[Rfam]
RNA sequence: GGUGAUAAACGCGCUCGUAAUAAGCGGCUCGGACCCGGGGGCGGUACCCGGCGACUCCACCAAACGCCCUUCAUUUGGGGCCAUGGGGUCGAAACAGGAUCGACGAACGUCUAAAGGGGUUUGCUUUUGCCCGGUGAGGAACCACCGUUAUCGGUCCGUUAAAGCUAGUUGCAAAUGACAACAAAGCUCCGAUGGCGCUCGCAGCGUAA
Numbered sequence: 001g002g003u004g005a006u007a008a009a010c011g012c013g014c015u016c017g018u019a020a021u022a023a024g025c026g027g028c029u030c031g032g033a034c035c036c037g038g039g040g041g042c043g044g045u046a047c048c049c050g051g052c053g054a055c056u057c058c059a060c061c062a063a064a065c066g067c068c069c070u071u072c073a074u075u076u077g078g079g080g081c082c083a084u085g086g087g088g089u090c091g092a093a094a095c096a097g098g099a100u101c102g103a104c105g106a107a108c109g110u111c112u113a114a115a116g117g118g119g120u121u122u123g124c125u126u127u128u129g130c131c132c133g134g135u136g137a138g139g140a141a142c143c144a145c146c147g148u149u150a151u152c153g154g155u156c157c158g159u160u161a162a163a164g165c166u167a168g169u170u171g172c173a174a175a176u177g178a179c180a181a182c183a184a185a186g187c188u189c190c191g192a193u194g195g196c197g198c199u200c201g202c203a204g205c206g207u208a209a
Stems, first nucleotide, its partner, number of pairs: 001131005013120004025109002029106003035051005052091007132147004
Shown here is a 209-nucleotide RNA sequence from Pseudoruegeria sp. SK021, a member of the family "permuted transfer-messenger RNA". The match comes from Rfam's covariance-model search (133 bits). About the family: Bacterial tmRNA, also known as 10Sa RNA or SsrA, is named for its dual tRNA and mRNA-like properties. Its role is to liberate the mRNA from a stalled ribosome.